[Rfam]
RNA: Repression of heat shock gene expression (ROSE) element
Organism: Pseudomonas fluorescens
RNA sequence: UACGCGAUGCCGAAUCCGGGUCGCGUAUUAAAUCACUUGGAGAAAACUCAGGAGAUUUUGCAAUGGCU
Numbered sequence: 001u002a003c004g005c006g007a008u009g010c011c012g013a014a015u016c017c018g019g020g021u022c023g024c025g026u027a028u029u030a031a032a033u034c035a036c037u038u039g040g041a042g043a044a045a046a047c048u049c050a051g052g053a054g055a056u057u058u059u060g061c062a063a064u065g066g067c068u
Stems, first nucleotide, its partner, number of pairs: 001027008010019003031057002036054003042049002